[Rfam]
RNA sequence: ACGAUGGUCGGAAACCAUCGCCCGAAGAGAGGAG
Numbered sequence: 001a002c003g004a005u006g007g008u009c010g011g012a013a014a015c016c017a018u019c020g021c022c023c024g025a026a027g028a029g030a031g032g033a034g
Stems, first nucleotide, its partner, number of pairs: 002020007
Rfam assigns this 34-nucleotide RNA sequence to the family "L31-Coriobacteria ribosomal protein leader". Clan: Ribosomal Protein L31 Leader clan. The family has 75 seed sequences and 105 matches in Rfam 15.1. Rfam classes the family as a cis-regulatory leader.